This 186-nucleotide sequence from Acinetobacter brisouii belongs to the Rfam family "Acinetobacter sRNA 28".
The base pairs follow the family's consensus structure, which was predicted with RNAfold.
Lineage of the source: Bacteria > Gammaproteobacteria > Moraxellales > Acinetobacter > Acinetobacter brisouii.
A search with the family's covariance model found it, with a score of 102 bits.

[Rfam]
RNA sequence: AUAUUGAAUUUCGGCACUAUCCACUAUGGAUAGAUUUUGAGGAGGACAUCAUGCCAGUACUAGCGAGCUUACAACAUAACUGAUUUGGCACGAUGUCGUCUCACGGACAGGUGUACAAAUCUCAUCUGUCCGAAUGCAUAGAACCUAGCAUUCGCUAGGUUUUUUUAUGCCUGAUAUUCGGACAAA
Number, nucleotide and partner (000 for none) at each position: 001a000002u140003a139004u000005u000006g000007a000008a000009u000010u000011u000012c000013g000014g137015c136016a135017c041018u040019a000020u000021c000022c000023a000024c000025u000026a000027u000028g000029g000030a000031u000032a000033g000034a000035u000036u000037u000038u000039g000040a018041g017042g102043a101044g100045g097046a096047c095048a094049u093050c092051a000052u090053g089054c088055c087056a086057g085058u000059a000060c000061u000062a000063g000064c000065g000066a000067g075068c000069u000070u000071a000072c000073a000074a000075c067076a000077u000078a000079a000080c000081u000082g000083a000084u000085u057086u056087g055088g054089c053090a052091c000092g050093a049094u048095g047096u046097c045098g000099u000100c044101u043102c042103a000104c132105g131106g130107a129108c128109a127110g126111g125112u124113g123114u000115a000116c000117a000118a000119a000120u000121c000122u000123c113124a112125u111126c110127u109128g108129u107130c106131c105132g104133a000134a000135u016136g015137c014138a000139u003140a002141g162142a161143a160144c159145c158146u157147a156148g155149c154150a000151u000152u000153c000154g149155c148156u147157a146158g145159g144160u143161u142162u141163u000164u000165u000166u000167a000168u000169g000170c181171c180172u000173g000174a000175u000176a000177u000178u000179c000180g171181g170182a000183c000184a000185a000186a000